[Rfam]
Nucleotides: 046
Base pairs, nucleotide, nucleotide: 001020002019003018004017005016006015007014008013033045034044035043036042037041
Number, partner (000 for none) and nucleotide at each position: 001020c002019c003018a004017g005016g006015g007014g008013u009000u010000u011000a012000c013008a014007c015006c016005c017004c018003u019002g020001g021000c022000u023000a024000a025000c026000g027000a028000c029000u030000g031000c032000c033045g034044c035043a036042c037041c038000u039000a040000c041037g042036g043035u044034g045033c046000u